[Rfam]
RNA sequence: UUCUUAUCCAGAAAGACCGAGGGAAUUGACCCUAUGACGUCUUGGCAACCUGUCACGCUCUGCGCGAUAAGGUGCCACAUUCAACCUCUGCAUUGGCAGGGAAAGAUAAGCU
Numbered sequence: 001u002u003c004u005u006a007u008c009c010a011g012a013a014a015g016a017c018c019g020a021g022g023g024a025a026u027u028g029a030c031c032c033u034a035u036g037a038c039g040u041c042u043u044g045g046c047a048a049c050c051u052g053u054c055a056c057g058c059u060c061u062g063c064g065c066g067a068u069a070a071g072g073u074g075c076c077a078c079a080u081u082c083a084a085c086c087u088c089u090g091c092a093u094u095g096g097c098a099g100g101g102a103a104a105g106a107u108a109a110g111c112u
Stems, first nucleotide, its partner, number of pairs: 003110006013043005021032003026084004044076004049072002051069004080104001086101006
SAM riboswitch aptamer (S box leader): a 112-nucleotide RNA from Flavobacterium cerinum. The literature on the family includes a 1998 paper in Mol Microbiol by Grundy and Henkin, "The S box regulon: a new global transcription termination control system for methionine and cysteine biosynthesis genes in gram-positive bacteria". Pairs were carried over by alignment from the consensus structure, which is taken from published work. The SAM riboswitch is found upstream of a number of genes which code for proteins involved in methionine or cysteine biosynthesis in Gram-positive bacteria. NCBI's taxonomy places the organism under Bacteria, Pseudomonadati, Flavobacteriia, Flavobacteriales, Flavobacterium.